[Rfam]
Rfam assigns this 118-nucleotide RNA from a Rhodobacterales bacterium to the family "Rhizobiales sRNA Atu_C8".
The literature on the family includes a 2012 paper in RNA Biol by Wilms et al., "Deep sequencing uncovers numerous small RNAs on all four replicons of the plant pathogen Agrobacterium tumefaciens".
Lineage of the source: Bacteria > Pseudomonadati > Pseudomonadota > Alphaproteobacteria > Rhodobacterales.
The match comes from Rfam's covariance-model search (58 bits).

RNA sequence: GAUGAUGUCGCUCAUUCUAGUAGUGGUAGGAACGCGCGCCCUCCAGGCGGGAUAGUCCCGCUCGGACAGGAUGGCGCGCGAUGAAGGCUCCCCCAGGGGCCUUUUUUUUAUUGCUGCC
Numbered sequence: 001g002a003u004g005a006u007g008u009c010g011c012u013c014a015u016u017c018u019a020g021u022a023g024u025g026g027u028a029g030g031a032a033c034g035c036g037c038g039c040c041c042u043c044c045a046g047g048c049g050g051g052a053u054a055g056u057c058c059c060g061c062u063c064g065g066a067c068a069g070g071a072u073g074g075c076g077c078g079c080g081a082u083g084a085a086g087g088c089u090c091c092c093c094c095a096g097g098g099g100c101c102u103u104u105u106u107u108u109u110a111u112u113g114c115u116g117c118c
Stems, first nucleotide, its partner, number of pairs: 009026001029114001031112002033080008042071001046062005083103001085102007